[Rfam]
The record is a 167-nucleotide RNA sequence from Gordonia jinhuaensis, which matches "c-di-AMP riboswitch aptamer (ydaO/yuaA leader)" in Rfam. It scores 64 bits against the family's covariance model. This family represents a conserved RNA structure found upstream of the ydaO and yuaA genes in Bacillus subtilis and related genes in other bacteria. The organism belongs to Gordonia, within Bacteria.
RNA sequence: GAUCAGCAAGCGUCUGCACGGGCGUGAAUCGGGGAACCACAGUACGGACAUCUGUCCUUGGGGUGAAUCCUGCGGUCAUGGGGAGCAGUUCGCCAUGGCAUGCGGGUAGGACCAUCUUCCGGUCCGAAUCCGACAGCUAACCCGGUCGGCGGUCAGAGGGAGAAACG
Numbered sequence: 001g002a003u004c005a006g007c008a009a010g011c012g013u014c015u016g017c018a019c020g021g022g023c024g025u026g027a028a029u030c031g032g033g034g035a036a037c038c039a040c041a042g043u044a045c046g047g048a049c050a051u052c053u054g055u056c057c058u059u060g061g062g063g064u065g066a067a068u069c070c071u072g073c074g075g076u077c078a079u080g081g082g083g084a085g086c087a088g089u090u091c092g093c094c095a096u097g098g099c100a101u102g103c104g105g106g107u108a109g110g111a112c113c114a115u116c117u118u119c120c121g122g123u124c125c126g127a128a129u130c131c132g133a134c135a136g137c138u139a140a141c142c143c144g145g146u147c148g149g150c151g152g153u154c155a156g157a158g159g160g161a162g163a164a165a166c167g
Stems, first nucleotide, its partner, number of pairs: 003027003028146006038060002061131003069106006109125004